[Rfam]
A member of the RNA family "Mammalian CPEB3 ribozyme" from Alligator mississippiensis, 75 nucleotides long. The base pairs follow the family's consensus structure, which is taken from published work. NCBI's taxonomy places the organism under Eukaryota, Teleostomi, Archelosauria, Crocodylia, Alligator. Rfam links the family to the GO term RNA nuclease activity.

RNA sequence: UCAAGAGUUCAAGGCCAUAGCGGAAGUGCUCACAGUAUGGCCCUGUCAGAUUCCAAGGAAUCUGUGAAUUUUGCU
Numbered sequence: 001u002c003a004a005g006a007g008u009u010c011a012a013g014g015c016c017a018u019a020g021c022g023g024a025a026g027u028g029c030u031c032a033c034a035g036u037a038u039g040g041c042c043c044u045g046u047c048a049g050a051u052u053c054c055a056a057g058g059a060a061u062c063u064g065u066g067a068a069u070u071u072u073g074c075u
Stems, first nucleotide, its partner, number of pairs: 013042004019075007026038003047064007